[Rfam]
RNA: Small nucleolar RNA snoR145
Organism: Protea cynaroides
RNA sequence: AAUCGAAGGUCCCAGCAGAGGGGUAUGGACUCCACGAUGAGACCUCUCUAACACAAAUAACCUUCGAAGAUCGAGAUGUUUUUUGGCCGGUUCGUUAGAUGCCCAAAGCAAUUGCCAUUUUGGAGCAUCUGCCUCUCGCGGCUACAUAAGA
Number, nucleotide and partner (000 for none) at each position: 001a000002a000003u067004c066005g065006a064007a063008g062009g061010u000011c020012c000013c018014a000015g000016c000017a000018g013019a000020g011021g000022g000023g000024u000025a000026u000027g046028g000029a000030c041031u040032c039033c000034a000035c000036g000037a000038u000039g032040a031041g030042a000043c000044c000045u000046c027047u000048c000049u000050a000051a000052c000053a000054c000055a000056a000057a000058u000059a000060a000061c009062c008063u007064u006065c005066g004067a003068a000069g000070a000071u000072c000073g000074a000075g000076a000077u000078g000079u000080u000081u000082u000083u000084u000085g000086g142087c141088c140089g139090g000091u000092u000093c000094g000095u000096u000097a000098g129099a128100u000101g126102c125103c123104c122105a121106a120107a119108g118109c000110a000111a000112u000113u000114g000115c000116c000117a000118u108119u107120u106121u105122g104123g103124a000125g102126c101127a000128u099129c098130u000131g000132c000133c000134u000135c000136u000137c000138g000139c089140g088141g087142c086143u000144a000145c000146a000147u000148a000149a000150g000151a000